[Rfam]
RNA sequence: GUCUGCCUGGCUCCCUGAAUGCCAUCUAGGAAGCUUGUCCAAGAGUGUUGGCAACCUCUCUAACUGGCAUGAGGGGAGUCACGCAGGC
Dot-bracket structure: ((((((.(((((((.(..((((((..(((..............................)))..))))))..).))))))).))))))